A member of the RNA family "MIR397 microRNA precursor family" from Oryza glumipatula, 121 nucleotides long. Rfam 15.1 lists 496 matches to the family in 218 species. Taxonomically the source falls in Oryza (Eukaryota, Viridiplantae, Euphyllophyta, Liliopsida). The literature on the family includes a 2009 paper in BMC Genomics by Mica et al., "High throughput approaches reveal splicing of primary microRNA transcripts and tissue specific expression of mature microRNAs in Vitis vinifera". It scores 81 bits against the family's covariance model.

RNA sequence: AUCAAAUGCAUCAUUGAGUGCAGCGUUGAUGAACAACGGUAACCGGUCCAUGUUGAGGCACAUUUUGGUCGGUGAUCCGAUGAUCAAUUGAUCAUCAGCGCUUCACUCAAUUAUGCGUUUG
Numbered sequence: 001a002u003c004a005a006a007u008g009c010a011u012c013a014u015u016g017a018g019u020g021c022a023g024c025g026u027u028g029a030u031g032a033a034c035a036a037c038g039g040u041a042a043c044c045g046g047u048c049c050a051u052g053u054u055g056a057g058g059c060a061c062a063u064u065u066u067g068g069u070c071g072g073u074g075a076u077c078c079g080a081u082g083a084u085c086a087a088u089u090g091a092u093c094a095u096c097a098g099c100g101c102u103u104c105a106c107u108c109a110a111u112u113a114u115g116c117g118u119u120u121g
Base pairs, nucleotide, nucleotide: 006118007117008116009115010114011113013111014110015109016108017107018106019105020104022102023101024100025099026098027097028096030094031093032092